The record is a 76-nucleotide RNA sequence from Nipponia nippon, which matches "Small nucleolar RNA SNORD74" in Rfam.
It scores 73 bits against the family's covariance model.
NCBI's taxonomy places the organism under Eukaryota, Metazoa, Craniata, Dipnotetrapodomorpha, Nipponia.
Its family is annotated with nucleolus and RNA processing in the Gene Ontology.
The literature on the family includes a 2002 paper in Mol Cell Biol by Galardi et al., "Purified box C/D snoRNPs are able to reproduce site-specific 2'-O-methylation of target RNA in vitro".
By type it is a C/D-box small nucleolar RNA.
The family's consensus secondary structure was predicted with PFOLD.
RNA sequence: GUGCCUGCAUGAUGAAAACUAUGUUGGUAGGGACAUCUGAGAGGGUGAUGAAUACCAACAUAUCUGAACAGGGCAU
Numbered sequence: 001g002u003g004c005c006u007g008c009a010u011g012a013u014g015a016a017a018a019c020u021a022u023g024u025u026g027g028u029a030g031g032g033a034c035a036u037c038u039g040a041g042a043g044g045g046u047g048a049u050g051a052a053u054a055c056c057a058a059c060a061u062a063u064c065u066g067a068a069c070a071g072g073g074c075a076u
Stems, first nucleotide, its partner, number of pairs: 001076005